[Rfam]
RNA sequence: CAACCUAUAUAGUGAUGUAUAGCUGAAUCUUGAGAAGUCAGCAGAGGUCAUAGUACUUAUCUAGUCAUGAAUAGAUAAGGAAGGAC
Dot-bracket structure: ((..(((((((....))))))).))............((....)).(((......((((((((........))))))))....)))
This 86-nucleotide RNA sequence from Alkaliphilus sp. B6464 belongs to the Rfam family "Group II catalytic intron D1-D4-1".
On this family, see Lehmann and Schmidt, Crit Rev Biochem Mol Biol 2003: "Group II introns: structure and catalytic versatility of large natural ribozymes".
The source organism's lineage runs through Bacteria, Bacillati, Clostridia, Peptostreptococcales and Alkaliphilus.